Shown here is a 136-nucleotide RNA sequence from Heterocephalus glaber, a member of the family "Small Cajal body specific RNA 21". It scores 110 bits against the family's covariance model. scaRNAs are a specific class of small nuclear RNAs which localise to the Cajal bodies and guide the modification of RNA polymerase II transcribed spliceosomal RNAs U1, U2, U4, U5 and U12. ACA68 (SCARNA21) is a member of the H/ACA class of snoRNAs that guide the sites of modification of uridines to pseudouridines. This snoRNA was identified by computational screening and its expression in mouse experimentally verified by Northern blot and primer extension analysis. Rfam classes the family as a small Cajal body RNA. Taxonomically the source falls in Heterocephalus (Eukaryota, Vertebrata, Gnathostomata, Hystricomorpha). Its family is annotated with nucleolus, Cajal body and RNA processing in the Gene Ontology. Pairs were carried over by alignment from the consensus structure, which was predicted with RNAalifold.
RNA sequence: UGACUCUGUUUCCUGGGAGGUAGACUCAGCCCCUCUACCUCCCCUCAGCUGAGCCUAGAGAAGAGGGGCUAACUGUCCUGUAUGGGAGAGGCAUUUAAGAAAGGAGCCUUGCCUGGGCGGUCACAGCCUUACAUUU
Numbered sequence: 001u002g003a004c005u006c007u008g009u010u011u012c013c014u015g016g017g018a019g020g021u022a023g024a025c026u027c028a029g030c031c032c033c034u035c036u037a038c039c040u041c042c043c044c045u046c047a048g049c050u051g052a053g054c055c056u057a058g059a060g061a062a063g064a065g066g067g068g069c070u071a072a073c074u075g076u077c078c079u080g081u082a083u084g085g086g087a088g089a090g091g092c093a094u095u096u097a098a099g100a101a102a103g104g105a106g107c108c109u110u111g112c113c114u115g116g117g118c119g120g121u122c123a124c125a126g127c128c129u130u131a132c133a134u135u136u
Base pairs, nucleotide, nucleotide: 002055004053005052006051015043016042017041018040019039020038021037022036023035024034065130066129067128068127069126077117078116079115084109085108086107